Shown here is a 129-nucleotide sequence from Methylobacterium sp. Leaf104, a member of the family "TPP riboswitch aptamer (THI element)". The base pairs follow the family's consensus structure, which is taken from published work. The organism belongs to Methylobacterium, within Bacteria.
RNA sequence: GGGCGUUCCAGGGAGAUCCCCGGCAAGGGGCUGAGAAACCGAUGGCCGUCCGUUCGCGGAUGGCGGCGCGGAAAUCCUUCGAACCUGACCCGGUUCAUACCGGCGUAGGGAUUGGACCGCGGGUUUCUC
Numbered sequence: 001g002g003g004c005g006u007u008c009c010a011g012g013g014a015g016a017u018c019c020c021c022g023g024c025a026a027g028g029g030g031c032u033g034a035g036a037a038a039c040c041g042a043u044g045g046c047c048g049u050c051c052g053u054u055c056g057c058g059g060a061u062g063g064c065g066g067c068g069c070g071g072a073a074a075u076c077c078u079u080c081g082a083a084c085c086u087g088a089c090c091c092g093g094u095u096c097a098u099a100c101c102g103g104c105g106u107a108g109g110g111a112u113u114g115g116a117c118c119g120c121g122g123g124u125u126u127c128u129c
Stems, first nucleotide, its partner, number of pairs: 007116004011078004018030004039071003084109004090103004